The record is a 102-nucleotide sequence from Bacillaceae bacterium SAS-127, which matches "Purine riboswitch aptamer" in Rfam. Lineage of the source: Bacteria > Bacillati > Bacillota > Bacilli > Bacillaceae.
[Rfam]
RNA sequence: AAUCAAUCUAACAUAUUACAUCGUAUAAAGUCGGGAAUAUGGCCCGAAAGUUUCUACCAAGCUGCCGUAAAUAGCUUGACUACGAGGUAACAGGAUAGAUAG
Numbered sequence: 001a002a003u004c005a006a007u008c009u010a011a012c013a014u015a016u017u018a019c020a021u022c023g024u025a026u027a028a029a030g031u032c033g034g035g036a037a038u039a040u041g042g043c044c045c046g047a048a049a050g051u052u053u054c055u056a057c058c059a060a061g062c063u064g065c066c067g068u069a070a071a072u073a074g075c076u077u078g079a080c081u082a083c084g085a086g087g088u089a090a091c092a093g094g095a096u097a098g099a100u101a102g
Stems, first nucleotide, its partner, number of pairs: 018088002021085005031047005058078007